[Rfam]
RNA sequence: GAACUCUAGUCAGCUAGGUGUGUUGGUGCAUGUGCUGGUCUGGGGACAGACAGUACCACAGUAGAGCAAAGAAGACCCAGACGGGUCGGUUUCCAUUUGUCCUGGAGCCCGACACUACAGCUCUGGCAAGCUU
Dot-bracket structure: (.(((........((((.(..................).))))........))).)..........((.((........(.(((((......(((.......))).))))).).......)).))........
Numbered sequence: 001g002a003a004c005u006c007u008a009g010u011c012a013g014c015u016a017g018g019u020g021u022g023u024u025g026g027u028g029c030a031u032g033u034g035c036u037g038g039u040c041u042g043g044g045g046a047c048a049g050a051c052a053g054u055a056c057c058a059c060a061g062u063a064g065a066g067c068a069a070a071g072a073a074g075a076c077c078c079a080g081a082c083g084g085g086u087c088g089g090u091u092u093c094c095a096u097u098u099g100u101c102c103u104g105g106a107g108c109c110c111g112a113c114a115c116u117a118c119a120g121c122u123c124u125g126g127c128a129a130g131c132u133u
Stems, first nucleotide, its partner, number of pairs: 001056001003054003014043004019038001067125002070122002080113001082111005093105003